[Rfam]
RNA: mir-2985 microRNA precursor family
RNA sequence: CUCAUUAAGGUGGGUGGAAUAGUAUAACAAUAAAUCGUGCAUUGUUAUAGUAUUCCACCUUCCCUGAUGUC
Numbered sequence: 001c002u003c004a005u006u007a008a009g010g011u012g013g014g015u016g017g018a019a020u021a022g023u024a025u026a027a028c029a030a031u032a033a034a035u036c037g038u039g040c041a042u043u044g045u046u047a048u049a050g051u052a053u054u055c056c057a058c059c060u061u062c063c064c065u066g067a068u069g070u071c
Base pairs, nucleotide, nucleotide: 003069004068005067006066007065009063010062012060013059014058015057016056017055019053020052021051023049024048025047026046027045028044029043030042031041